[Rfam]
RNA sequence: GUUAUCUGAGGUGAAGAUUUCGUCCGUGUCACACACCCUAUGGGUUAAAAGAUAUGCGGGAGGUUCGGACGCCCGCCAGAUAAC
Numbered sequence: 001g002u003u004a005u006c007u008g009a010g011g012u013g014a015a016g017a018u019u020u021c022g023u024c025c026g027u028g029u030c031a032c033a034c035a036c037c038c039u040a041u042g043g044g045u046u047a048a049a050a051g052a053u054a055u056g057c058g059g060g061a062g063g064u065u066c067g068g069a070c071g072c073c074c075g076c077c078a079g080a081u082a083a084c
Stems, first nucleotide, its partner, number of pairs: 001084008011032004022070005034051001035045004056076005

skipping-rope RNA: an 84-nucleotide RNA. The base pairs follow the family's consensus structure, which is taken from published work. By type it is a small RNA.